[Rfam]
RNA sequence: CUGCGAUCGCCAUGCUGAUGUGCGACGGAGUCCGUGGUGGUUGCAGAGAGUUUAUAGACGUCCAUCGCACCGUGACUUUCCACUUAAAGUCGCGGCCCGAACACGGGAGAGAACGCUGAGCGUUACAAC
Numbered sequence: 001c002u003g004c005g006a007u008c009g010c011c012a013u014g015c016u017g018a019u020g021u022g023c024g025a026c027g028g029a030g031u032c033c034g035u036g037g038u039g040g041u042u043g044c045a046g047a048g049a050g051u052u053u054a055u056a057g058a059c060g061u062c063c064a065u066c067g068c069a070c071c072g073u074g075a076c077u078u079u080c081c082a083c084u085u086a087a088a089g090u091c092g093c094g095g096c097c098c099g100a101a102c103a104c105g106g107g108a109g110a111g112a113a114c115g116c117u118g119a120g121c122g123u124u125a126c127a128a129c
Stems, first nucleotide, its partner, number of pairs: 001046012070095010
RNA: atpB RNA
Organism: Corynebacterium mustelae